[Rfam]
RNA sequence: CGCCGACUUCGACCAGACACGAUAUCCUGCUGCGAUAUUGUGCGACCUGCAGUGUCAGUCGAUUUCGGCG
Numbered sequence: 001c002g003c004c005g006a007c008u009u010c011g012a013c014c015a016g017a018c019a020c021g022a023u024a025u026c027c028u029g030c031u032g033c034g035a036u037a038u039u040g041u042g043c044g045a046c047c048u049g050c051a052g053u054g055u056c057a058g059u060c061g062a063u064u065u066c067g068g069c070g
Stems, first nucleotide, its partner, number of pairs: 001070006009062005021039006044056003
Background: A member of the RNA family "bZIP non canonical Hac1/Xbp1 intron" from Corynespora cassiicola, 70 nucleotides long. A reference for the family is Hooks and Griffiths-Jones (2011), "Conserved RNA structures in the non-canonical Hac1/Xbp1 intron", RNA Biol. The family's RNA type in Rfam is small RNA. About the family: bZIP intron RNA is a non-canonical intron that was first reported in HAC1 gene in yeast and XBP1 gene in Metazoa. The family has 112 seed sequences and 1,325 matches in Rfam 15.1.